This 70-nucleotide RNA from Homo sapiens belongs to the Rfam family "mir-3689 microRNA precursor family". Pairs were carried over by alignment from the consensus structure, which was predicted with RNAalifold. NCBI's taxonomy places the organism under Eukaryota, Vertebrata, Gnathostomata, Hominidae, Homo.

RNA sequence: GGGAGGUGUAUCCUGUGCUCCCUGGGAGGUAUGAUCCUGUGCUCCCUGGGAGGUGUAUCCUGUGCUUCCU
Numbered sequence: 001g002g003g004a005g006g007u008g009u010a011u012c013c014u015g016u017g018c019u020c021c022c023u024g025g026g027a028g029g030u031a032u033g034a035u036c037c038u039g040u041g042c043u044c045c046c047u048g049g050g051a052g053g054u055g056u057a058u059c060c061u062g063u064g065c066u067u068c069c070u
Base pairs, nucleotide, nucleotide: 001069002068003067004066005065014057015056016055017054019052021050022049023048024047025046026045028043030041031040032039033038
Rfam 15.1 lists 117 matches to the family in 18 species. Gene Ontology terms of the family: miRNA-mediated post-transcriptional gene silencing and RISC complex.